[Rfam]
RNA sequence: UGAUUAAAAGGUCAUAAGGUAUGAUCGAUGUAUGUCUACAUGCAAUUUGAUGGAUACCGUAAUGACCCGCACCACAAUUGAGAAAGUAGUAAUUUACUAUGCAAGCAUGUAAAUUAGCGGAUUUCGAAAUGCGGUCAGAUUAUGAAAAUGCGAAGCAUGUAUUAAUCUGAUUAAUCU
Numbered sequence: 001u002g003a004u005u006a007a008a009a010g011g012u013c014a015u016a017a018g019g020u021a022u023g024a025u026c027g028a029u030g031u032a033u034g035u036c037u038a039c040a041u042g043c044a045a046u047u048u049g050a051u052g053g054a055u056a057c058c059g060u061a062a063u064g065a066c067c068c069g070c071a072c073c074a075c076a077a078u079u080g081a082g083a084a085a086g087u088a089g090u091a092a093u094u095u096a097c098u099a100u101g102c103a104a105g106c107a108u109g110u111a112a113a114u115u116a117g118c119g120g121a122u123u124u125c126g127a128a129a130u131g132c133g134g135u136c137a138g139a140u141u142a143u144g145a146a147a148a149u150g151c152g153a154a155g156c157a158u159g160u161a162u163u164a165a166u167c168u169g170a171u172u173a174a175u176c177u
Stems, first nucleotide, its partner, number of pairs: 002176006010067004016060001018058005024051005030043005071135003077130003082125004089118002091115007137168006148158004
This 177-nucleotide sequence from Roseburia sp. CAG:18 belongs to the Rfam family "Clostridiales-1 RNA". NCBI's taxonomy places the organism under Bacteria, Bacillati, Clostridia, Lachnospirales, Roseburia. A search with the family's covariance model found it, with a score of 80 bits.